RNA sequence: CUGACCGUGAAGUCCCACUCGGCGGAGUCCUGCGCCAGCACCCGGUCGCCGAAGUGGUCGCCGUCGGCCAGCGUGCCCAGCACGGCGUCGUCGCCGUAGUGCCCCUGGGCGAUCUUGUGCACCUUGCCGUGCGCGAUGAGGACGACCUGGUCGGCGGGGCGCCCCGCCUCGACGAUCACGUCGCCGGCCGCGAACUCCCGCUGCUCGAACCGGUCGGCCAGGGCGCCCAGCACCUCCUCGUCGUCGAAUCCGCGCAGCGUCGGCAGCUCGCACAGCUCCCGCGGGAUGACCCGGACAUCGGCCCCGGUGUUGGUGAAGGUCACCCGGCCGUCACCCACCGCGUAGCUCAGCCGCCGGUUGACCCGGUAGGUGCCGGCGGAGGCCUGCACCCACGGCAGCUUGCGCAGCAGCCAGCGCGGGGAGAUCCCCUGCAUCUGCGGGGUCGACUUGGUCGUCGUCGCCAGGUUGCGCGCGGCCGCGGUCCCCAGGCUCAUCUGGGAUUGUCCGU
Numbered sequence: 001c002u003g004a005c006c007g008u009g010a011a012g013u014c015c016c017a018c019u020c021g022g023c024g025g026a027g028u029c030c031u032g033c034g035c036c037a038g039c040a041c042c043c044g045g046u047c048g049c050c051g052a053a054g055u056g057g058u059c060g061c062c063g064u065c066g067g068c069c070a071g072c073g074u075g076c077c078c079a080g081c082a083c084g085g086c087g088u089c090g091u092c093g094c095c096g097u098a099g100u101g102c103c104c105c106u107g108g109g110c111g112a113u114c115u116u117g118u119g120c121a122c123c124u125u126g127c128c129g130u131g132c133g134c135g136a137u138g139a140g141g142a143c144g145a146c147c148u149g150g151u152c153g154g155c156g157g158g159g160c161g162c163c164c165c166g167c168c169u170c171g172a173c174g175a176u177c178a179c180g181u182c183g184c185c186g187g188c189c190g191c192g193a194a195c196u197c198c199c200g201c202u203g204c205u206c207g208a209a210c211c212g213g214u215c216g217g218c219c220a221g222g223g224c225g226c227c228c229a230g231c232a233c234c235u236c237c238u239c240g241u242c243g244u245c246g247a248a249u250c251c252g253c254g255c256a257g258c259g260u261c262g263g264c265a266g267c268u269c270g271c272a273c274a275g276c277u278c279c280c281g282c283g284g285g286a287u288g289a290c291c292c293g294g295a296c297a298u299c300g301g302c303c304c305c306g307g308u309g310u311u312g313g314u315g316a317a318g319g320u321c322a323c324c325c326g327g328c329c330g331u332c333a334c335c336c337a338c339c340g341c342g343u344a345g346c347u348c349a350g351c352c353g354c355c356g357g358u359u360g361a362c363c364c365g366g367u368a369g370g371u372g373c374c375g376g377c378g379g380a381g382g383c384c385u386g387c388a389c390c391c392a393c394g395g396c397a398g399c400u401u402g403c404g405c406a407g408c409a410g411c412c413a414g415c416g417c418g419g420g421g422a423g424a425u426c427c428c429c430u431g432c433a434u435c436u437g438c439g440g441g442g443u444c445g446a447c448u449u450g451g452u453c454g455u456c457g458u459c460g461c462c463a464g465g466u467u468g469c470g471c472g473c474g475g476c477c478g479c480g481g482u483c484c485c486c487a488g489g490c491u492c493a494u495c496u497g498g499g500a501u502u503g504u505c506c507g508u
Base pairs, nucleotide, nucleotide: 007389008388009387011385012384014382015381019327021325022324027320028316029315035313036312037311038310039309040308041307042306045305048302049301050300051299052298054233055232058229060227062225063224064223065111066110068108075103078101079100082097083096084095085094086093118221122217123216127212129210130209131206133204134203135202138199140197144195150191153189154188155187158185159184160183165174166173235295236294237293240290241289242288243287244286245285249283251281252280254278256277257276258275261270262269329342330341331340351379352378353377354376355375356374357373361371362370363369391431392430394428395427397425399423400422401421403418404417405416407415437476438475440473442471443470446467447465448464449463450462451461452460477507478506480502481501482500484499485498486497487496488495
The record is a 508-nucleotide RNA from Spinactinospora alkalitolerans, which matches "Saccharopolyspora sRNA 350" in Rfam. Pairs were carried over by alignment from the consensus structure, which was predicted with RNAfold. Its family is annotated with regulation of secondary metabolite biosynthetic process in the Gene Ontology. It scores 258 bits against the family's covariance model.